[Rfam]
Nucleotides: 123
Stems, first nucleotide, its partner, number of pairs: 001123011013111003017107006023100005030093002033090007041082002045078004
Number, partner (000 for none) and nucleotide at each position: 001123a002122a003121u004120a005119g006118g007117a008116g009115a010114a011113u012000u013111a014110c015109a016000a017107a018106u019105c020104a021103g022102a023100u024099u025098u026097u027096u028000c029000a030093u031092u032000c033090u034089g035088a036087u037086u038085u039084u040000c041082a042081g043000c044000u045078u046077u047076u048075u049000u050000c051000u052000c053000c054000u055000a056000c057000a058000a059000a060000a061000a062000u063000u064000c065000a066000a067000a068000u069000c070000c071000a072000a073000c074000u075048a076047a077046a078045a079000u080000g081042u082041u083000a084039a085038a086037a087036g088035u089034c090033a091000a092031g093030a094000a095000a096027a097026a098025a099024a100023a101000a102022u103021c104020u105019g106018a107017u108000c109015u110014g111013u112000c113011a114010u115009u116008c117007u118006c119005c120004u121003a122002u123001u
Annotation:
This 123-nucleotide sequence from Gossypium stocksii belongs to the Rfam family "MIR7504 microRNA precursor family". Gene Ontology terms of the family: RISC complex and miRNA-mediated post-transcriptional gene silencing. Rfam 15.1 lists 7,343 matches to the family in 61 species. The base pairs follow the family's consensus structure, which was predicted with RNAalifold. The source organism's lineage runs through Eukaryota, Viridiplantae, Streptophytina, rosids and Gossypium.